[Rfam]
RNA sequence: UGAAUGCGCAAGGGACUCACCUCCACGUGGUGCACUCCGGGCAACGUAUACUCAUACGGCAAAAAAGUCUAU
Numbered sequence: 001u002g003a004a005u006g007c008g009c010a011a012g013g014g015a016c017u018c019a020c021c022u023c024c025a026c027g028u029g030g031u032g033c034a035c036u037c038c039g040g041g042c043a044a045c046g047u048a049u050a051c052u053c054a055u056a057c058g059g060c061a062a063a064a065a066a067g068u069c070u071a072u
Base pairs, nucleotide, nucleotide: 002037003036005034006033007032019031020030021029045058046057047056048055049054
RNA: HDV ribozyme from F. prausnitzii